[Rfam]
RNA sequence: AAUCUGUUUCAGGGCGAGGUGAAAUUCCUCACUGGCGGUGAUGAGCUUUGGCUUCGAGUCCGCGAGCUUUCCUUUGGAGGGCAGAAUGGGUGGGAACCCCAUACCAACGGUACAGUCCGGAUGAAAGAAACAAAAA
Numbered sequence: 001a002a003u004c005u006g007u008u009u010c011a012g013g014g015c016g017a018g019g020u021g022a023a024a025u026u027c028c029u030c031a032c033u034g035g036c037g038g039u040g041a042u043g044a045g046c047u048u049u050g051g052c053u054u055c056g057a058g059u060c061c062g063c064g065a066g067c068u069u070u071c072c073u074u075u076g077g078a079g080g081g082c083a084g085a086a087u088g089g090g091u092g093g094g095a096a097c098c099c100c101a102u103a104c105c106a107a108c109g110g111u112a113c114a115g116u117c118c119g120g121a122u123g124a125a126a127g128a129a130a131c132a133a134a135a136a
Stems, first nucleotide, its partner, number of pairs: 003134001005132006017029003031116002033106002035063004058104002066082003086102005108119003
RNA: FMN riboswitch aptamer (RFN element)
Organism: Clostridium sp. CAG:149